[Rfam]
RNA sequence: UGGGAGAAUCUGUAAAGCUCAGGAGGGAUAGCACCAUGAUACUGAUGAUGUUCAUAGCAGUACAAACUUGGCGCUAUCUAUCUUGAGCUUCAUGGCUUCUUCAU
Dot-bracket structure: .........(.....(((((((((.(((((((.((..................................)).))))))).))))))))).....).........
This 104-nucleotide RNA from Glycine max belongs to the Rfam family "MIR390 microRNA precursor family". Pairs were carried over by alignment from the consensus structure, which was predicted with WAR. Rfam links the family to the GO terms miRNA-mediated post-transcriptional gene silencing and RISC complex. For this family Rfam cites "ASRP: the Arabidopsis Small RNA Project Database" (Gustafson et al., Nucleic Acids Res, 2005).